[Rfam]
RNA sequence: GUAUCCUUCGCGAAUGAUCGAAAUCCAGACCAGCCUCCGACGUCGCCGCUCGCCGCUUCCCUAGGGAUGCCGCUGGCUCGUCACGGAUUCGCGCUCAUGUCUUGAUCGAUGCGCACGAAAUGAAGCCACGGGAUACCGUGGCUUUUGU
Numbered sequence: 001g002u003a004u005c006c007u008u009c010g011c012g013a014a015u016g017a018u019c020g021a022a023a024u025c026c027a028g029a030c031c032a033g034c035c036u037c038c039g040a041c042g043u044c045g046c047c048g049c050u051c052g053c054c055g056c057u058u059c060c061c062u063a064g065g066g067a068u069g070c071c072g073c074u075g076g077c078u079c080g081u082c083a084c085g086g087a088u089u090c091g092c093g094c095u096c097a098u099g100u101c102u103u104g105a106u107c108g109a110u111g112c113g114c115a116c117g118a119a120a121u122g123a124a125g126c127c128a129c130g131g132g133a134u135a136c137c138g139u140g141g142c143u144u145u146u147g148u
Base pairs, nucleotide, nucleotide: 006117008115009093010092011091012090013089030086031085038080039079040078042077043076044075045073046072048070049069053065122145123144124143125142126141127140128139129138130137131136